[Rfam]
RNA sequence: UGACCCUUUUUAAAGCCGAGGGUCACCUAGCCAACUGACGUUGUUAGUGAACCUACUUUGUUCACUUAUUUAUUACAGCCAAUUGCUUCUUAUAGCGAUUGGCUUUUUUUUG
Numbered sequence: 001u002g003a004c005c006c007u008u009u010u011u012a013a014a015g016c017c018g019a020g021g022g023u024c025a026c027c028u029a030g031c032c033a034a035c036u037g038a039c040g041u042u043g044u045u046a047g048u049g050a051a052c053c054u055a056c057u058u059u060g061u062u063c064a065c066u067u068a069u070u071u072a073u074u075a076c077a078g079c080c081a082a083u084u085g086c087u088u089c090u091u092a093u094a095g096c097g098a099u100u101g102g103c104u105u106u107u108u109u110u111u112g
Stems, first nucleotide, its partner, number of pairs: 001025006042075002047065006079102008